[Rfam]
The family of this 79-nucleotide sequence from Mesorhabditis belari is "mir-83 microRNA precursor family". It scores 45 bits against the family's covariance model. The family has 6 seed sequences and 60 matches in Rfam 15.1. Its family is annotated with RISC complex and miRNA-mediated post-transcriptional gene silencing in the Gene Ontology. On this family, see Ruby et al., Cell 2006: "Large-scale sequencing reveals 21U-RNAs and additional microRNAs and endogenous siRNAs in C. elegans".
RNA sequence: CGUCGAGAAAUCCUGGGUUUAUGUGAGGGCUGGACUUUCUGAGAGCCUCUAGCACCAUAUAAAUUCAGCGCUUCUCAAU
Numbered sequence: 001c002g003u004c005g006a007g008a009a010a011u012c013c014u015g016g017g018u019u020u021a022u023g024u025g026a027g028g029g030c031u032g033g034a035c036u037u038u039c040u041g042a043g044a045g046c047c048u049c050u051a052g053c054a055c056c057a058u059a060u061a062a063a064u065u066c067a068g069c070g071c072u073u074c075u076c077a078a079u
Base pairs, nucleotide, nucleotide: 013068014067015066016065017064018063019062020061021060022059024057025056027055030052031051033049034048